[Rfam]
RNA sequence: AAGCGGACGAGAACCAUUUGAAUCAUUACACUAGUGGAUUCAAAGGGUUCUCACAA
Numbered sequence: 001a002a003g004c005g006g007a008c009g010a011g012a013a014c015c016a017u018u019u020g021a022a023u024c025a026u027u028a029c030a031c032u033a034g035u036g037g038a039u040u041c042a043a044a045g046g047g048u049u050c051u052c053a054c055a056a
Base pairs, nucleotide, nucleotide: 009052010051011050012049013048014047015046017044018043019042020041021040022039023038024037
RNA: Plastid-ccsA-ndhD-1 3UTR RNA
Organism: Saxifraga stolonifera